[Rfam]
RNA sequence: AUGAGGGUAAAGGGAGAGACCGCAGCAGUCGGCAGGUCGUGCCGGCCGGAAGCGGCGCCGAAGGAGUAAGCCGUCAUGGUGAAUCUCUCAGGCAAAAGGACCUUUAUCGGACG
Numbered sequence: 001a002u003g004a005g006g007g008u009a010a011a012g013g014g015a016g017a018g019a020c021c022g023c024a025g026c027a028g029u030c031g032g033c034a035g036g037u038c039g040u041g042c043c044g045g046c047c048g049g050a051a052g053c054g055g056c057g058c059c060g061a062a063g064g065a066g067u068a069a070g071c072c073g074u075c076a077u078g079g080u081g082a083a084u085c086u087c088u089c090a091g092g093c094a095a096a097a098g099g100a101c102c103u104u105u106a107u108c109g110g111a112c113g
Stems, first nucleotide, its partner, number of pairs: 006108008020055004057093003060089002064087003070080002

A member of the RNA family "Glycine riboswitch aptamer" from Paenibacillus contaminans, 113 nucleotides long.
Gene Ontology term of the family: glycine biosynthetic process.
Pairs were carried over by alignment from the consensus structure.
About the family: This family represents the bacterial glycine riboswitch.